[Rfam]
RNA sequence: GAGUUGUAUGUGAGAAUUGGAGGGAAUUAAAUCAAUUUUAUUCCAUUAACUUUACUAUUCUGAUUUAAUUUCCUCCAAUAUCUUACCUCCAAUUC
Dot-bracket structure: ...(((.(..((((.((((((.((((((((.((............................)).)))))))).))))))..))))..).)))...
Numbered sequence: 001g002a003g004u005u006g007u008a009u010g011u012g013a014g015a016a017u018u019g020g021a022g023g024g025a026a027u028u029a030a031a032u033c034a035a036u037u038u039u040a041u042u043c044c045a046u047u048a049a050c051u052u053u054a055c056u057a058u059u060c061u062g063a064u065u066u067a068a069u070u071u072c073c074u075c076c077a078a079u080a081u082c083u084u085a086c087c088u089c090c091a092a093u094u095c
Stems, first nucleotide, its partner, number of pairs: 004092003008088001011085004016079006023072008032063002
MIR2275 microRNA precursor family: a 95-nucleotide RNA from Gossypium stocksii. The family has 13 seed sequences and 785 matches in Rfam 15.1. Its family is annotated with RISC complex and miRNA-mediated post-transcriptional gene silencing in the Gene Ontology.